Rfam assigns this 405-nucleotide RNA sequence from Candidatus Phytoplasma pruni to the family "Bacterial RNase P class B". The match comes from Rfam's covariance-model search (163 bits). About the family: Ribonuclease P (RNase P) is a ubiquitous endoribonuclease, found in archaea, bacteria and eukarya as well as chloroplasts and mitochondria. Its best characterised activity is the generation of mature 5'-ends of tRNAs by cleaving the 5'-leader elements of precursor-tRNAs. Cellular RNase Ps are ribonucleoproteins. RNA from bacterial RNase Ps retains its catalytic activity in the absence of the protein subunit, i.e. it is a ribozyme.
[Rfam]
RNA sequence: AAUGGAAGGUGGUCGAGGUUUAAUAUUGUUUUUAACAAUAUUAGGCUUAGGAAAGUCCAUAUUAGCACAUGUUUAGGAAAGACAUGUAGUGUUUGUGCUUAAGGAAAACAAGAACUUAAGGUGCUUAAAUUCAUUUAAGUAACGACUGUUUAAAUUCUAAAAACUUAUUCAUAAGUUCAUGAAAAUAAACUUAAAGUGCCACAGAAACGAGUUAAUUAGAAAUAAUUAAAUGAAACGCGGUAAACUCCUCAAGCUAACAACCCAAAAAAAUGGUAGGGGCACAUGAAAAUUGACGUUUUCUGUUUUUUUAAUUAUAGUUGGUUUUUGUGCUAUUUUCGAUAACGAAUGUAGAGAUAAAUGAUCACACUUGUUUGCAAAAACAAGAACAGAACAUGGCUUAUGCAC
Numbered sequence: 001a002a003u004g005g006a007a008g009g010u011g012g013u014c015g016a017g018g019u020u021u022a023a024u025a026u027u028g029u030u031u032u033u034a035a036c037a038a039u040a041u042u043a044g045g046c047u048u049a050g051g052a053a054a055g056u057c058c059a060u061a062u063u064a065g066c067a068c069a070u071g072u073u074u075a076g077g078a079a080a081g082a083c084a085u086g087u088a089g090u091g092u093u094u095g096u097g098c099u100u101a102a103g104g105a106a107a108a109c110a111a112g113a114a115c116u117u118a119a120g121g122u123g124c125u126u127a128a129a130u131u132c133a134u135u136u137a138a139g140u141a142a143c144g145a146c147u148g149u150u151u152a153a154a155u156u157c158u159a160a161a162a163a164c165u166u167a168u169u170c171a172u173a174a175g176u177u178c179a180u181g182a183a184a185a186u187a188a189a190c191u192u193a194a195a196g197u198g199c200c201a202c203a204g205a206a207a208c209g210a211g212u213u214a215a216u217u218a219g220a221a222a223u224a225a226u227u228a229a230a231u232g233a234a235a236c237g238c239g240g241u242a243a244a245c246u247c248c249u250c251a252a253g254c255u256a257a258c259a260a261c262c263c264a265a266a267a268a269a270a271u272g273g274u275a276g277g278g279g280c281a282c283a284u285g286a287a288a289a290u291u292g293a294c295g296u297u298u299u300c301u302g303u304u305u306u307u308u309u310a311a312u313u314a315u316a317g318u319u320g321g322u323u324u325u326u327g328u329g330c331u332a333u334u335u336u337c338g339a340u341a342a343c344g345a346a347u348g349u350a351g352a353g354a355u356a357a358a359u360g361a362u363c364a365c366a367c368u369u370g371u372u373u374g375c376a377a378a379a380a381c382a383a384g385a386a387c388a389g390a391a392c393a394u395g396g397c398u399u400a401u402g403c404a405c
Stems, first nucleotide, its partner, number of pairs: 004405001007401001009365006016048012053399003057396004062257005067087006093252003097248001098120006121143001122141008144247002148190003155183003162177006196245002198241003212229007261278003282329013330351004335346004367384007